[Rfam]
RNA sequence: GGCUCCUGUCGUGACUGGCGUGUUCGGGUGGAGACAACCACCGGGGAGCGACCGACCGGAACCGUGCCGUGCGCCUGGGUGCCUCCG
Number, nucleotide and partner (000 for none) at each position: 001g000002g000003c000004u055005c054006c000007u000008g052009u051010c050011g049012u048013g000014a000015c045016u044017g075018g074019c073020g072021u071022g000023u000024u000025c000026g000027g000028g041029u040030g039031g038032a000033g000034a000035c000036a000037a000038c031039c030040a029041c028042c000043g000044g016045g015046g000047a000048g012049c011050g010051a009052c008053c000054g005055a004056c000057c000058g000059g000060a000061a000062c000063c000064g082065u081066g080067c079068c078069g000070u000071g021072c020073g019074c018075c017076u000077g000078g068079g067080u066081g065082c064083c000084u000085c000086c000087g000
Rfam assigns this 87-nucleotide RNA sequence from Solihabitans fulvus to the family "ZMP/ZTP riboswitch aptamer (pfl RNA motif)". It scores 52 bits against the family's covariance model.